[Rfam]
RNA sequence: UGCCCCUUGGCAAAAAUAUGUCGUUCUGGACUGGUCUAGUAGCUCCUCUUGAGCGAAAAAUCGGUAGACAAAAUAAGAA
Numbered sequence: 001u002g003c004c005c006c007u008u009g010g011c012a013a014a015a016a017u018a019u020g021u022c023g024u025u026c027u028g029g030a031c032u033g034g035u036c037u038a039g040u041a042g043c044u045c046c047u048c049u050u051g052a053g054c055g056a057a058a059a060a061u062c063g064g065u066a067g068a069c070a071a072a073a074u075a076a077g078a079a
Stems, first nucleotide, its partner, number of pairs: 001012004019070004030065006042054002
This 79-nucleotide RNA sequence belongs to the Rfam family "RT-18 RNA". Pairs were carried over by alignment from the consensus structure, which is taken from published work. It is one of the family's seed sequences. It is annotated as a small RNA.